The record is a 75-nucleotide RNA from Streptomyces sp. SAJ15, which matches "ASpks TB sRNA" in Rfam. A search with the family's covariance model found it, with a score of 67 bits.
RNA sequence: CUUCAGCGACCCCAGUCGAAGGGGUCGCUCAGCUGGGCGGUCCUGACCGUAUGUGGCCAGCAGGGCGUGCGCCUC
Numbered sequence: 001c002u003u004c005a006g007c008g009a010c011c012c013c014a015g016u017c018g019a020a021g022g023g024g025u026c027g028c029u030c031a032g033c034u035g036g037g038c039g040g041u042c043c044u045g046a047c048c049g050u051a052u053g054u055g056g057c058c059a060g061c062a063g064g065g066c067g068u069g070c071g072c073c074u075c
Stems, first nucleotide, its partner, number of pairs: 015025003032070002038065001043060003047056003